A member of the RNA family "Small nucleolar RNA SNORD24" from Brettanomyces bruxellensis, 90 nucleotides long. For this family Rfam cites "U24, a novel intron-encoded small nucleolar RNA with two 12 nt long, phylogenetically conserved complementarities to 28S rRNA" (Qu et al., Nucleic Acids Res, 1995). The family has 14 seed sequences and 2,843 matches in Rfam 15.1. By type it is a C/D-box small nucleolar RNA. Gene Ontology terms of the family: RNA processing and nucleolus.
RNA sequence: CUCAGAUGAUGUUACUAUUAUAUUUGCUACUUCGGACGGUCGUUUCGACGACUGGAUGAGACUUUUUUUAUCACCAAGAUCUCUGAUGAG
Dot-bracket structure: ((((..................................................................................))))